Annotation
The record is an 88-nucleotide sequence from Streptomyces sp. Rer75, which matches "sodF sRNA" in Rfam. The literature on the family includes a 2014 paper in Nucleic Acids Res by Kim et al., "Inverse regulation of Fe- and Ni-containing SOD genes by a Fur family regulator Nur through small RNA processed from 3'UTR of the sodF mRNA". Rfam 15.1 lists 336 matches to the family in 317 species.
RNA sequence: GCCCCCUGCUCACGUGAUCGCCUUCUCAACCUUCACGGGCAGGCGGAAAACAGGGCCCCCGCGCGGUCGAGUCGCGCGGGGGCCCUGC
Numbered sequence: 001g002c003c004c005c006c007u008g009c010u011c012a013c014g015u016g017a018u019c020g021c022c023u024u025c026u027c028a029a030c031c032u033u034c035a036c037g038g039g040c041a042g043g044c045g046g047a048a049a050a051c052a053g054g055g056c057c058c059c060c061g062c063g064c065g066g067u068c069g070a071g072u073c074g075c076g077c078g079g080g081g082g083c084c085c086u087g088c
Base pairs, nucleotide, nucleotide: 001044005043006042007041008040009039010038011037014036015035016034017033020030051087052086053085054084055083056082057081058080059079060078061077062076063075064074065073
NCBI's taxonomy places the organism under Bacteria, Actinomycetota, Actinomycetes, Streptomycetaceae, Streptomyces.